Glycine riboswitch aptamer: a 105-nucleotide sequence from Paractinoplanes atraurantiacus. A search with the family's covariance model found it, with a score of 38 bits. The organism belongs to Paractinoplanes, within Bacteria.

RNA sequence: GCGACUCUGGAAAGUCAGGACGCGGCCGGCGUUCUGCGCCCACGGUGCAAGCCGUCCCGUUCGCGGGCGGUGAAGCUCUCAGGCACCCAUGACAGAGCGGGGGAG
Number, nucleotide and partner (000 for none) at each position: 001g000002c100003g000004a000005c097006u096007c095008u094009g093010g000011a000012a000013a000014g000015u000016c036017a035018g034019g033020a032021c031022g000023c000024g000025g000026c000027c000028g000029g000030c000031g021032u020033u019034c018035u017036g016037c000038g084039c083040c082041c000042a079043c000044g000045g078046u000047g076048c000049a000050a000051g071052c070053c069054g068055u067056c066057c065058c000059g000060u000061u000062c000063g000064c000065g057066g056067g055068c054069g053070g052071u051072g000073a000074a000075g000076c047077u000078c045079u042080c000081a000082g040083g039084c038085a000086c000087c000088c000089a000090u000091g000092a000093c009094a008095g007096a006097g005098c000099g000100g002101g000102g000103g000104a000105g000